[Rfam]
RNA sequence: ACAGAAAAAUGGCACGAUGGGGGUGACCCCUACCACGCAAAGCCAAGGAUCUCGGUCAGGAGCCGAGAGAGCCGGGUUGCCUGU
Numbered sequence: 001a002c003a004g005a006a007a008a009a010u011g012g013c014a015c016g017a018u019g020g021g022g023g024u025g026a027c028c029c030c031u032a033c034c035a036c037g038c039a040a041a042g043c044c045a046a047g048g049a050u051c052u053c054g055g056u057c058a059g060g061a062g063c064c065g066a067g068a069g070a071g072c073c074g075g076g077u078u079g080c081c082u083g084u
Base pairs, nucleotide, nucleotide: 012038013037018032019031020030021029022028041078042077043076044075047073048072050068051067052066053065054064055063

Rfam assigns this 84-nucleotide sequence from Fimbriimonas ginsengisoli to the family "c-di-GMP-I riboswitch aptamer". The match comes from Rfam's covariance-model search (36 bits). The organism belongs to Fimbriimonas ginsengisoli, within Bacteria. The family is grouped with related families in Rfam's "c-di-GMP_I riboswitch clan".